RNA sequence: CCGAGAGCAAGGUCGUCGGUCAGCGUCCAUUUUCGUGUUGUUUCAGUUUUCCGUGUUCCCUGGCGCGUAACCGAGCCGCAGGUGUCACCUCCCUCGCCUGCCGGCCUUGCGCCCACCUCGCCUCGCUCGACUCUGUGGAGCGAGGCUAUUU
Dot-bracket structure: .............................................................((((((..........(((((((..........)))))))......))))))......(((((((((.((...)).))))))))).....

A member of the RNA family "Rhizobiales sRNA Atu_C7" from Aliirhizobium cellulosilyticum, 151 nucleotides long. The family's RNA type in Rfam is small RNA. A reference for the family is Wilms et al. (2012), "Deep sequencing uncovers numerous small RNAs on all four replicons of the plant pathogen Agrobacterium tumefaciens", RNA Biol.